A member of the RNA family "sok antitoxin (CssrC)" from Enterobacteriaceae bacterium strain FGI 57, 176 nucleotides long. The family's consensus secondary structure is taken from published work. The family's RNA type in Rfam is antitoxin RNA.
RNA sequence: GGGUGCUUGAGGCUAUCUGUCUCAGGCAUUUGCAGGAUGGCAGAUAGAGAAAAGCCCCAGAUAACAUUUAACGUCUUGCAGGACGUUUAACAUUCAUCUGAGGCCAUAUCUAAUGCUAGACACAUUAAGAUUAGCCUCUUACUGGCCCACGGGUCAAGGAGUAGACGGCUAUGAAG
Numbered sequence: 001g002g003g004u005g006c007u008u009g010a011g012g013c014u015a016u017c018u019g020u021c022u023c024a025g026g027c028a029u030u031u032g033c034a035g036g037a038u039g040g041c042a043g044a045u046a047g048a049g050a051a052a053a054g055c056c057c058c059a060g061a062u063a064a065c066a067u068u069u070a071a072c073g074u075c076u077u078g079c080a081g082g083a084c085g086u087u088u089a090a091c092a093u094u095c096a097u098c099u100g101a102g103g104c105c106a107u108a109u110c111u112a113a114u115g116c117u118a119g120a121c122a123c124a125u126u127a128a129g130a131u132u133a134g135c136c137u138c139u140u141a142c143u144g145g146c147c148c149a150c151g152g153g154u155c156a157a158g159g160a161g162u163a164g165a166c167g168g169c170u171a172u173g174a175a176g
Stems, first nucleotide, its partner, number of pairs: 001058003005055004013047009059099004063094002067090002100138005108131004112126004142168003146164001

Rfam's curators write: Also identified in Shigella as CssrC.